[Rfam]
RNA sequence: UAGUAGAUGCACCCUGAUUGCUAACUCCUCUGGCUGGCUAACACCGACUGGGGGAUUUUUUU
Numbered sequence: 001u002a003g004u005a006g007a008u009g010c011a012c013c014c015u016g017a018u019u020g021c022u023a024a025c026u027c028c029u030c031u032g033g034c035u036g037g038c039u040a041a042c043a044c045c046g047a048c049u050g051g052g053g054g055a056u057u058u059u060u061u062u
Stems, first nucleotide, its partner, number of pairs: 003012002027054007035046003
Shown here is a 62-nucleotide RNA from Cylindrospermum sp. NIES-4074, a member of the family "Nitrogen stress-induced RNA 1". By type it is a small RNA. It scores 70 bits against the family's covariance model.